[Rfam]
RNA sequence: UGGUAGAUGCACCCUGAUCCAGCCCCUGGAGGUUAGCCUCCGGGGCUUUUUUUG
Number, nucleotide and partner (000 for none) at each position: 001u000002g013003g012004u011005a000006g000007a000008u000009g000010c000011a004012c003013c002014c000015u000016g000017a000018u000019c000020c000021a000022g000023c000024c045025c044026c043027u042028g041029g040030a039031g038032g037033u000034u000035a000036g000037c032038c031039u030040c029041c028042g027043g026044g025045g024046c000047u000048u000049u000050u000051u000052u000053u000054g000
RNA: Nitrogen stress-induced RNA 1
Organism: Roseofilum reptotaenium